[Rfam]
RNA sequence: ACCGCGUACUUACCUACUAUAUAGUAGAAAAAAUACAUGUAUCUUGGCUACUAUGUAGUAGGUAAGUAUGUGGUUU
Dot-bracket structure: (((((((((((((((.(((((((((((..((.(((....))).))..))))))))))).)))))))))))))))..
RNA: mir-7563 microRNA precursor family
Organism: Ameiurus melas